[Rfam]
RNA sequence: GUGGGUGGAAGCUCAUCGUAGAGGUCACAUGCAGAGUGCUAGUCACUUAACCAACCACCUUGGGGAAGGUCUGAGACAGGAGCCAAUGACUGCCCUAGCAGGGCAUCACCCUCUCUGGGUGAAUGAGUGCACAGAGAAUAUUGGCUGUUGUGAGCUGUCUUCACAGGAGAAACCAGCAAGUGUAGCUCUCCAGCACUUCUGGUGGAUGUGACUUCACUGGUUUGGAAUCACUCAUGGCUGGCAUAGUGAGUGCAAUGUGUGAGUUGGAGUAUACCUCCAGAACCCAAUUCAGACUACUCUCUGCCCAC
Numbered sequence: 001g002u003g004g005g006u007g008g009a010a011g012c013u014c015a016u017c018g019u020a021g022a023g024g025u026c027a028c029a030u031g032c033a034g035a036g037u038g039c040u041a042g043u044c045a046c047u048u049a050a051c052c053a054a055c056c057a058c059c060u061u062g063g064g065g066a067a068g069g070u071c072u073g074a075g076a077c078a079g080g081a082g083c084c085a086a087u088g089a090c091u092g093c094c095c096u097a098g099c100a101g102g103g104c105a106u107c108a109c110c111c112u113c114u115c116u117g118g119g120u121g122a123a124u125g126a127g128u129g130c131a132c133a134g135a136g137a138a139u140a141u142u143g144g145c146u147g148u149u150g151u152g153a154g155c156u157g158u159c160u161u162c163a164c165a166g167g168a169g170a171a172a173c174c175a176g177c178a179a180g181u182g183u184a185g186c187u188c189u190c191c192a193g194c195a196c197u198u199c200u201g202g203u204g205g206a207u208g209u210g211a212c213u214u215c216a217c218u219g220g221u222u223u224g225g226a227a228u229c230a231c232u233c234a235u236g237g238c239u240g241g242c243a244u245a246g247u248g249a250g251u252g253c254a255a256u257g258u259g260u261g262a263g264u265u266g267g268a269g270u271a272u273a274c275c276u277c278c279a280g281a282a283c284c285c286a287a288u289u290c291a292g293a294c295u296a297c298u299c300u301c302u303g304c305c306c307a308c
Stems, first nucleotide, its partner, number of pairs: 001308004007302003012263005021061004034048005071292005081239004091105005106122006123235007144221003264280006
The record is a 308-nucleotide RNA sequence from Salmo trutta, which matches "Nuclear RNase P" in Rfam. Taxonomically the source falls in Salmo (Eukaryota, Craniata, Euteleostomi, Actinopterygii). A reference for the family is Frank and Pace (1998), "Ribonuclease P: unity and diversity in a tRNA processing ribozyme", Annu Rev Biochem.